[Rfam]
The family of this 83-nucleotide sequence from Rhinopithecus roxellana is "mir-3943 microRNA precursor family".
RNA sequence: AACACAGCUGCAGCCUAGCCCCCAGGAUUCACUUGGCAUGGACAACUUGCUAAGUAAAGCGGGGGGUGGACCAUGGCUGGCUU
Numbered sequence: 001a002a003c004a005c006a007g008c009u010g011c012a013g014c015c016u017a018g019c020c021c022c023c024a025g026g027a028u029u030c031a032c033u034u035g036g037c038a039u040g041g042a043c044a045a046c047u048u049g050c051u052a053a054g055u056a057a058a059g060c061g062g063g064g065g066g067u068g069g070a071c072c073a074u075g076g077c078u079g080g081c082u083u
Base pairs, nucleotide, nucleotide: 001083002082005079006078007077008076009075010074013071015069016068017067019065020064021063022062023061026060028058029057031055032054033053034052035051036050037049038048
Dot-bracket structure: ((..((((((..(.(((.(((((..(.((.((((((((.........)))))))).)).)))))).))).)..))))))..))

Lineage of the source: Eukaryota > Craniata > Theria > Colobinae > Rhinopithecus.
Gene Ontology terms of the family: RISC complex and miRNA-mediated post-transcriptional gene silencing.
The match comes from Rfam's covariance-model search (76 bits).
Pairs were carried over by alignment from the consensus structure, which was predicted with RNAalifold.